[Rfam]
RNA sequence: ACCCCACCCCCUUUACUCGGAUCGUCCGGCACGUUCCUGCCGGUGAAGGAGAGCAGA
Number, nucleotide and partner (000 for none) at each position: 001a000002c000003c000004c000005c000006a000007c000008c000009c000010c049011c048012u047013u046014u045015a044016c000017u000018c000019g000020g000021a000022u000023c000024g000025u000026c043027c042028g041029g040030c039031a038032c000033g000034u000035u000036c000037c000038u031039g030040c029041c028042g027043g026044u015045g014046a013047a012048g011049g010050a000051g000052a000053g000054c000055a000056g000057a000
RNA: msiK RNA
Organism: Streptacidiphilus fuscans